[Rfam]
Annotation:
T-box leader: a 226-nucleotide RNA sequence from Compostibacillus humi. Rfam's curators write: Uncharged tRNA acts as the effector for transcription antitermination of genes in the T-box leader family. Its family is annotated with tRNA binding in the Gene Ontology. Rfam classes the family as a cis-regulatory leader.
RNA sequence: CAAGAUACGAUGAUGGAGACAGUAUAAAAACAAAGGGCUUGUAUCAGCGAGCCGGGAAUUGGUGAAAGCCCGGACUGGCCGUGUUUUUAGAAGAUCACUCCGAAGUAUCCAUUAUGAACGGUGAGUAGUAAUGGACGGUUAUCCCCGUUACGGAUGUCGAGCGGAUUUAAAAUGGCAGUCAUUUUAAAUCUAUAAGGGUGGUACCGCGAGUCUUCUCGUCCCUUCU
Number, nucleotide and partner (000 for none) at each position: 001c000002a000003a000004g000005a000006u000007a106008c105009g000010a000011u000012g000013a000014u000015g101016g100017a099018g098019a000020c000021a000022g000023u000024a000025u089026a088027a087028a086029a085030a084031c000032a000033a000034a000035g000036g000037g000038c077039u000040u000041g075042u000043a000044u000045c000046a000047g000048c000049g000050a000051g000052c073053c072054g071055g070056g069057a000058a000059u000060u000061g000062g000063u000064g000065a000066a000067a000068g000069c056070c055071c054072g053073g052074a000075c041076u000077g038078g000079c000080c000081g000082u000083g000084u030085u029086u028087u027088u026089a025090g000091a000092a000093g000094a000095u000096c000097a000098c018099u017100c016101c015102g000103a000104a000105g008106u007107a000108u000109c134110c133111a132112u131113u130114a129115u128116g000117a000118a000119c000120g000121g000122u000123g000124a000125g000126u000127a000128g115129u114130a113131a112132u111133g110134g109135a000136c147137g146138g145139u000140u000141a000142u000143c000144c000145c138146c137147g136148u000149u000150a000151c000152g000153g000154a000155u000156g000157u000158c000159g000160a000161g000162c000163g000164g190165a189166u188167u187168u186169a185170a184171a183172a182173u181174g180175g000176c000177a000178g000179u000180c174181a173182u172183u171184u170185u169186a168187a167188a166189u165190c164191u000192a000193u000194a000195a223196g222197g221198g220199u000200g000201g000202u000203a000204c000205c000206g219207c218208g217209a216210g215211u000212c000213u000214u000215c210216u209217c208218g207219u206220c198221c197222c196223u195224u000225c000226u000
It scores 125 bits against the family's covariance model. NCBI's taxonomy places the organism under Bacteria, Bacillati, Bacilli, Caryophanales, Compostibacillus.